[Rfam]
RNA sequence: UAUAACUACAGGUAGUAGUACACUGUGUACCGGUGAGCAGUGAAUUUACGUUUAAGCGUACUCUAAGUACGUCAUCUCGCUGG
Numbered sequence: 001u002a003u004a005a006c007u008a009c010a011g012g013u014a015g016u017a018g019u020a021c022a023c024u025g026u027g028u029a030c031c032g033g034u035g036a037g038c039a040g041u042g043a044a045u046u047u048a049c050g051u052u053u054a055a056g057c058g059u060a061c062u063c064u065a066a067g068u069a070c071g072u073c074a075u076c077u078c079g080c081u082g083g
Base pairs, nucleotide, nucleotide: 007027008026009025010024011023012021013020014019030083031082032081033080034079035078040075041074042073043052044051045050056072057071058070059069060068061067
Notes: DUF3800-I RNA: an 83-nucleotide RNA sequence. Rfam's curators write: Actinobacteria, Firmicutes, Fusobacteria, Proteobacteria (1 example), Tenericutes (2 examples). Rfam classes the family as a small RNA.